[Rfam]
RNA sequence: UUGUGAUAUAUGCUGAAUUUUCUUUAAGAAAAACGGGGGACCCAGUAAAAAUGGGGUGAAUCCUAUUGCAUGUGCAAGGGAAGGGCAAGCUUCUCACAGCCCUAAUCCGACAGCUAACCCCGUAAGCGAAAAGUGAGAAGGA
Numbered sequence: 001u002u003g004u005g006a007u008a009u010a011u012g013c014u015g016a017a018u019u020u021u022c023u024u025u026a027a028g029a030a031a032a033a034c035g036g037g038g039g040a041c042c043c044a045g046u047a048a049a050a051a052u053g054g055g056g057u058g059a060a061u062c063c064u065a066u067u068g069c070a071u072g073u074g075c076a077a078g079g080g081a082a083g084g085g086c087a088a089g090c091u092u093c094u095c096a097c098a099g100c101c102c103u104a105a106u107c108c109g110a111c112a113g114c115u116a117a118c119c120c121c122g123u124a125a126g127c128g129a130a131a132a133g134u135g136a137g138a139a140g141g142a
Base pairs, nucleotide, nucleotide: 011128012127013126014125018032019031020030021029022028033123034122035121036120037119038118043053044052054108055107056106062080063079064078083102084101085100086099